[Rfam]
RNA sequence: UGGAGUUCAACAGGGGUAACAUGAGAACACACGAAAGAGUCUAACACUUGACUGUUCAUGUGUUCUCAGGUCGCCCCUGCUGAAUCUUC
Numbered sequence: 001u002g003g004a005g006u007u008c009a010a011c012a013g014g015g016g017u018a019a020c021a022u023g024a025g026a027a028c029a030c031a032c033g034a035a036a037g038a039g040u041c042u043a044a045c046a047c048u049u050g051a052c053u054g055u056u057c058a059u060g061u062g063u064u065c066u067c068a069g070g071u072c073g074c075c076c077c078u079g080c081u082g083a084a085u086c087u088u089c
Stems, first nucleotide, its partner, number of pairs: 007083002011079004016074002019071001023067009
Notes: A member of the RNA family "MIR398 microRNA precursor family" from Coptis chinensis, 89 nucleotides long. NCBI's taxonomy places the organism under Eukaryota, Spermatophyta, Mesangiospermae, Coptidoideae, Coptis. The family's consensus secondary structure was predicted with WAR. The literature on the family includes a 2004 paper in Mol Cell by Jones-Rhoades and Bartel, "Computational identification of plant microRNAs and their targets, including a stress-induced miRNA". Rfam links the family to the GO terms miRNA-mediated post-transcriptional gene silencing and RISC complex.